[Rfam]
c-di-GMP-I riboswitch aptamer: a 90-nucleotide sequence from Halalkalibacter nanhaiisediminis. The source organism's lineage runs through Bacteria, Bacilli, Caryophanales, Bacillaceae and Halalkalibacter. Pairs were carried over by alignment from the consensus structure, which is taken from published work. A search with the family's covariance model found it, with a score of 70 bits.
RNA sequence: AUACGAUAAGGGCAAAAUUUGCGAAAGUUGAUGACGCAAAGCUAUAGGGGCUAAAGUGACGACCUGUCAUCAUGCCAGCCAGCUACCGCA
Numbered sequence: 001a002u003a004c005g006a007u008a009a010g011g012g013c014a015a016a017a018u019u020u021g022c023g024a025a026a027g028u029u030g031a032u033g034a035c036g037c038a039a040a041g042c043u044a045u046a047g048g049g050g051c052u053a054a055a056g057u058g059a060c061g062a063c064c065u066g067u068c069a070u071c072a073u074g075c076c077a078g079c080c081a082g083c084u085a086c087c088g089c090a
Stems, first nucleotide, its partner, number of pairs: 012037002017032003021028002040084004047080002049076003056070004